Shown here is a 172-nucleotide sequence from Melissococcus plutonius, a member of the family "Lysine riboswitch aptamer". The base pairs follow the family's consensus structure, which is taken from published work. Gene Ontology term of the family: lysine biosynthetic process.
RNA sequence: AAUUGAGGUAGAGGUUGCGAUUUUUAUUAAGCUUGUGGAGUGAGAGGACACAAAGAAGCAAGUCUAGGAAAAAUCGCCGAAAUAGAUAAUAGCCUCCCUAUUGUCUAUUGGGACAUAAGUGAAUAGCUUAUGGACUGUCUUAGUAGAGAUGCUAAGUUGCGCUAUAUAUUUG
Numbered sequence: 001a002a003u004u005g006a007g008g009u010a011g012a013g014g015u016u017g018c019g020a021u022u023u024u025u026a027u028u029a030a031g032c033u034u035g036u037g038g039a040g041u042g043a044g045a046g047g048a049c050a051c052a053a054a055g056a057a058g059c060a061a062g063u064c065u066a067g068g069a070a071a072a073a074u075c076g077c078c079g080a081a082a083u084a085g086a087u088a089a090u091a092g093c094c095u096c097c098c099u100a101u102u103g104u105c106u107a108u109u110g111g112g113a114c115a116u117a118a119g120u121g122a123a124u125a126g127c128u129u130a131u132g133g134a135c136u137g138u139c140u141u142a143g144u145a146g147a148g149a150u151g152c153u154a155a156g157u158u159g160c161g162c163u164a165u166a167u168a169u170u171u172g
Base pairs, nucleotide, nucleotide: 006167008165009164010163011162017077018076019075020074021073022072023071024070025069031063032062033061034060035059036058081109082108083107084106085105086104087103088102089101090100091099092098110136111135114132115131116130117129118128119127120126139156140155141154142153143152144151